[Rfam]
RNA: Enterococcus sRNA 1300
RNA sequence: AUGCAUUCCGUUCGCUUAAGAUAAGACGGCAAUAAAAAAGCAGAUUUUUCCAUAUUUUAUGGGCUUUUUUGUCGUGCUUAUUUUAAUGAAUGGGAUCAAACAUGGAUAGGUGAAGGAUCGGCUUUAAUCAGCUUAUGCCUUUUAUUUCUCUAUGCCUUUUCAUUGGUAUGCAGACCGAAGCCCGUACAUGUGGACUUAAGGCCUGCAUUUUUAUU
Number, nucleotide and partner (000 for none) at each position: 001a000002u000003g000004c000005a096006u095007u094008c093009c092010g091011u090012u000013c088014g087015c000016u000017u000018a000019a083020g082021a081022u080023a079024a078025g077026a000027c000028g000029g075030c074031a000032a072033u071034a070035a069036a068037a067038a066039a065040g064041c063042a000043g000044a000045u000046u000047u000048u000049u000050c062051c061052a060053u059054a058055u000056u000057u000058u054059a053060u052061g051062g050063g041064c040065u039066u038067u037068u036069u035070u034071g033072u032073c000074g030075u029076g000077c025078u024079u023080a022081u021082u020083u019084u000085a000086a000087u014088g013089a000090a011091u010092g009093g008094g007095a006096u005097c154098a153099a000100a000101c000102a000103u152104g151105g150106a149107u000108a000109g000110g000111u000112g147113a146114a000115g138116g000117a136118u000119c000120g133121g132122c131123u000124u000125u000126a000127a000128u000129c000130a000131g122132c121133u120134u000135a000136u117137g000138c115139c000140u000141u000142u000143u000144a000145u000146u113147u112148c000149u106150c105151u104152a103153u098154g097155c000156c000157u000158u000159u000160u000161c000162a000163u000164u000165g000166g000167u000168a208169u207170g206171c205172a204173g203174a000175c201176c200177g000178a197179a196180g195181c000182c193183c192184g191185u190186a000187c000188a000189u000190g185191u184192g183193g182194a000195c180196u179197u178198a000199a000200g176201g175202c000203c173204u172205g171206c170207a169208u168209u000210u000211u000212u000213a000214u000215u000